RNA: L31-Actinobacteria ribosomal protein leader
RNA sequence: ACGGUUCCGGUUCACGCCCGUCGGAUCCCCCGGCGCAGCGACCCGGCGACC
Dot-bracket structure: ..(((.((((....(((.((((((.....))))))..)))..))))..)))